Description:
Shown here is a 68-nucleotide sequence from Flavobacterium sp. 316, a member of the family "DUF805 RNA". Clan: DUF805 clan.

[Rfam]
RNA sequence: UUAAAAUGGAGAUUAGAAACCAGAAUAAAAACAAGGCGUAACCGAAAAGCCAAACGAGUAGGAAAACU
Number, nucleotide and partner (000 for none) at each position: 001u000002u000003a000004a000005a000006a000007u022008g021009g020010a000011g000012a000013u000014u000015a000016g000017a000018a000019a000020c009021c008022a007023g000024a000025a000026u000027a000028a000029a000030a000031a000032c000033a000034a000035g051036g050037c049038g000039u000040a000041a000042c062043c061044g000045a000046a000047a000048a000049g037050c036051c035052a000053a000054a000055c000056g000057a000058g000059u000060a000061g043062g042063a000064a000065a000066a000067c000068u000